[Rfam]
RNA sequence: AACAGCAAAUUCUUGGCAACGGGGUAGGUUCCGAAGCCUCUAAGAAGGCUAACACAGGCUCUCCUAUCCAACUCCUAUCCUGACACGUCCUUUACGUGCCGAGUGGUAACAUGUGUCAUCAAAUAUCCAAGCUUGGGUACACGGGCCCAGUCCCAACCCCUUGGGCGGAUGAUGAUGCAUGGCAAAGCAGGAAGGG
Numbered sequence: 001a002a003c004a005g006c007a008a009a010u011u012c013u014u015g016g017c018a019a020c021g022g023g024g025u026a027g028g029u030u031c032c033g034a035a036g037c038c039u040c041u042a043a044g045a046a047g048g049c050u051a052a053c054a055c056a057g058g059c060u061c062u063c064c065u066a067u068c069c070a071a072c073u074c075c076u077a078u079c080c081u082g083a084c085a086c087g088u089c090c091u092u093u094a095c096g097u098g099c100c101g102a103g104u105g106g107u108a109a110c111a112u113g114u115g116u117c118a119u120c121a122a123a124u125a126u127c128c129a130a131g132c133u134u135g136g137g138u139a140c141a142c143g144g145g146c147c148c149a150g151u152c153c154c155a156a157c158c159c160c161u162u163g164g165g166c167g168g169a170u171g172a173u174g175a176u177g178c179a180u181g182g183c184a185a186a187g188c189a190g191g192a193a194g195g196g
Base pairs, nucleotide, nucleotide: 011103013101015099022069023068024067025066026065027064028063031058032057073196074195075194076193078192079191081190084187085097086096087095089106090105110181111180112179113178114177115176117174118173119172120171125170126169127168128167133156134155135154136153137152158165159164
The record is a 196-nucleotide RNA sequence from Anopheles gambiae, which matches "drz-agam-2-2 ribozyme" in Rfam. Gene Ontology term of the family: catalytic activity.